[Rfam]
RNA: SAH (S-adenosyl-L-homocysteine) riboswitch aptamer
RNA sequence: GCGGCCGAGAGGCGCUGCAACGGGGGUCACCCCGCCACGCUCGGCCGGACAGAAACUUGUCGUAAGGGCGCCUCCUAGUG
Numbered sequence: 001g002c003g004g005c006c007g008a009g010a011g012g013c014g015c016u017g018c019a020a021c022g023g024g025g026g027u028c029a030c031c032c033c034g035c036c037a038c039g040c041u042c043g044g045c046c047g048g049a050c051a052g053a054a055a056c057u058u059g060u061c062g063u064a065a066g067g068g069c070g071c072c073u074c075c076u077a078g079u080g
Base pairs, nucleotide, nucleotide: 002047003046004045005044006043007042008041021034022033023032024031025030